RNA sequence: UCCAUCGUGAGGUGGAAUCUGAAGAAAGGAUUAGGCAAAACUCUGGCUUGUUACAUCUGAGGCUAAAUGCAAGGAUAAGGUUGCCAUACAAACCAAAGUCCAAUAGCUGCACGGAAUUGCAUUUAGUAGUUAUGGAAUGAGUACUAAGAGGGAAAGAACGUGUG
Number, nucleotide and partner (000 for none) at each position: 001u016002c015003c014004a013005u012006c011007g000008u000009g000010a000011g006012g005013u004014g003015g002016a001017a000018u000019c000020u000021g000022a000023a000024g000025a000026a000027a000028g000029g163030a000031u000032u160033a000034g000035g000036c156037a000038a000039a000040a000041c150042u149043c148044u147045g000046g142047c141048u140049u139050g138051u137052u136053a000054c134055a133056u132057c000058u000059g000060a000061g000062g127063c126064u125065a000066a123067a122068u121069g120070c119071a118072a117073g101074g100075a099076u098077a000078a000079g094080g093081u092082u091083g000084c000085c000086a000087u000088a000089c000090a000091a082092a081093c080094c079095a000096a000097a000098g076099u075100c074101c073102a000103a000104u000105a000106g000107c000108u000109g000110c000111a000112c000113g000114g000115a000116a000117u072118u071119g070120c069121a068122u067123u066124u000125a064126g063127u062128a000129g000130u000131u000132a056133u055134g054135g000136a052137a051138u050139g049140a048141g047142u046143a000144c000145u000146a000147a044148g043149a042150g041151g000152g000153a000154a000155a000156g036157a000158a000159c000160g032161u000162g000163u029164g000